[Rfam]
RNA sequence: AAAAAGGGUUUCCACCAAUUGGUGACCGGUUUACCUGCCGGGCGGAAUGGCGAUCAAGACAUUCCGGGGACAUAAUAUUUGACCACUGGACAGUCGGCUACAUCUGGCUGACGUCCAA
Numbered sequence: 001a002a003a004a005a006g007g008g009u010u011u012c013c014a015c016c017a018a019u020u021g022g023u024g025a026c027c028g029g030u031u032u033a034c035c036u037g038c039c040g041g042g043c044g045g046a047a048u049g050g051c052g053a054u055c056a057a058g059a060c061a062u063u064c065c066g067g068g069g070a071c072a073u074a075a076u077a078u079u080u081g082a083c084c085a086c087u088g089g090a091c092a093g094u095c096g097g098c099u100a101c102a103u104c105u106g107g108c109u110g111a112c113g114u115c116c117a118a
Base pairs, nucleotide, nucleotide: 008071009070010069011068012067013024014023015022016021026041027040028039029038030037043066044065045064046063047062048061049060088116089115090114091113093112094111095110096109097108101107

Shown here is a 118-nucleotide sequence from Schistosoma curassoni, a member of the family "U11 spliceosomal RNA". The source organism's lineage runs through Eukaryota, Trematoda, Digenea, Strigeidida and Schistosoma. It scores 70 bits against the family's covariance model. By type it is a spliceosomal small nuclear RNA. On this family, see Schneider et al., Proc Natl Acad Sci U S A 2004: "Identification of an evolutionarily divergent U11 small nuclear ribonucleoprotein particle in Drosophila".